[Rfam]
The record is a 52-nucleotide RNA from Aureimonas pseudogalii, which matches "ffh sRNA" in Rfam.
Lineage of the source: Bacteria > Pseudomonadati > Pseudomonadota > Hyphomicrobiales > Aureimonas.
A reference for the family is Meyer et al. (2009), "Identification of candidate structured RNAs in the marine organism 'Candidatus Pelagibacter ubique'", BMC Genomics.

RNA sequence: CCGCAGGGAGGUUCCCAUCCGCCAGCGAGUUUCGCCCGCGGAUGCGUUUCCG
Numbered sequence: 001c002c003g004c005a006g007g008g009a010g011g012u013u014c015c016c017a018u019c020c021g022c023c024a025g026c027g028a029g030u031u032u033c034g035c036c037c038g039c040g041g042a043u044g045c046g047u048u049u050c051c052g
Stems, first nucleotide, its partner, number of pairs: 016044007025035004